[Rfam]
RNA sequence: UUGAAAUCUGCGCCGGAACCAAGCGGCAGCCAACAUUUGUCACAGCCGUCCUCGCCGCCACUGACCCCAAUUUCCUGAACUGCGGGUGUACAGCAGUAGCUGAUACCACUAGCUGCUGCUGACAACCCUCCUUUCAGGGAUUUACGGUCCGUGGCGGUGAGCACGGCUGUGACAAAUGUUGGCUGCCGCUUGGUUCCGGCGCAGAUUUCAA
Numbered sequence: 001u002u003g004a005a006a007u008c009u010g011c012g013c014c015g016g017a018a019c020c021a022a023g024c025g026g027c028a029g030c031c032a033a034c035a036u037u038u039g040u041c042a043c044a045g046c047c048g049u050c051c052u053c054g055c056c057g058c059c060a061c062u063g064a065c066c067c068c069a070a071u072u073u074c075c076u077g078a079a080c081u082g083c084g085g086g087u088g089u090a091c092a093g094c095a096g097u098a099g100c101u102g103a104u105a106c107c108a109c110u111a112g113c114u115g116c117u118g119c120u121g122a123c124a125a126c127c128c129u130c131c132u133u134u135c136a137g138g139g140a141u142u143u144a145c146g147g148u149c150c151g152u153g154g155c156g157g158u159g160a161g162c163a164c165g166g167c168u169g170u171g172a173c174a175a176a177u178g179u180u181g182g183c184u185g186c187c188g189c190u191u192g193g194u195u196c197c198g199g200c201g202c203a204g205a206u207u208u209c210a211a
Base pairs, nucleotide, nucleotide: 001211002210003209004208005207006206007205008204009203010202011201012200013199014198015197016196017195018194019193020192021191022190023189024188025187026186027185028184029183030182031181032180033179035177036176037175038174039173040172041171043169044168045167046166047165048164049163051161052160053159055157056156057155058154059153060152061151063149064148065147066146069143070142072140074138075137076136077135078134079133084128085127086126091121092120093119094118095117096116097115098114099113100112101111
This 211-nucleotide sequence from Ectocarpus sp. CCAP 1310/34 belongs to the Rfam family "MIR8622 microRNA precursor family". The match comes from Rfam's covariance-model search (211 bits). Taxonomically the source falls in Ectocarpus (Eukaryota, Sar, Ochrophyta, Ectocarpales).